[Rfam]
c-di-GMP-I riboswitch aptamer: an 85-nucleotide RNA sequence from Hydrogenoanaerobacterium saccharovorans.
RNA sequence: AUUAGAAAAAGGCAGGAUUAACGAAAGUUAAUUGCGCAAAGCUAUAGGGUCUAAGUUCUUCGGAAUAUGACAGCCAGUUACCUAC
Number, nucleotide and partner (000 for none) at each position: 001a000002u000003u000004a000005g000006a000007a000008a000009a000010a000011g000012g037013c036014a000015g000016g000017a032018u031019u030020a029021a028022c027023g000024a000025a000026a000027g022028u021029u020030a019031a018032u017033u000034g000035c000036g013037c012038a000039a000040a079041g078042c077043u076044a000045u000046a000047g075048g074049g071050u070051c069052u000053a000054a000055g000056u065057u064058c063059u000060u000061c000062g000063g058064a057065a056066u000067a000068u000069g051070a050071c049072a000073g000074c048075c047076a043077g042078u041079u040080a000081c000082c000083u000084a000085c000
Its family is annotated with cyclic-di-GMP binding in the Gene Ontology. The source organism's lineage runs through Bacteria, Bacillati, Clostridia, Oscillospiraceae and Hydrogenoanaerobacterium. The base pairs follow the family's consensus structure, which is taken from published work.